[Rfam]
RNA sequence: AUUACUCUCUCUCCCUCAAGGGCUUCCAAAUUGCUUCCCAUGAAACAAGUUUGAGGCCUUUUUGGGAGGGAGUAUAG
Numbered sequence: 001a002u003u004a005c006u007c008u009c010u011c012u013c014c015c016u017c018a019a020g021g022g023c024u025u026c027c028a029a030a031u032u033g034c035u036u037c038c039c040a041u042g043a044a045a046c047a048a049g050u051u052u053g054a055g056g057c058c059u060u061u062u063u064g065g066g067a068g069g070g071a072g073u074a075u076a077g
Base pairs, nucleotide, nucleotide: 007072008071009070010069011068012067013066014065015064018061019060020059021058022057023056024055025054026053
Notes
MIR473 microRNA precursor family: a 77-nucleotide sequence from Arachis hypogaea. Taxonomically the source falls in Arachis (Eukaryota, Spermatophyta, Magnoliopsida, Fabales).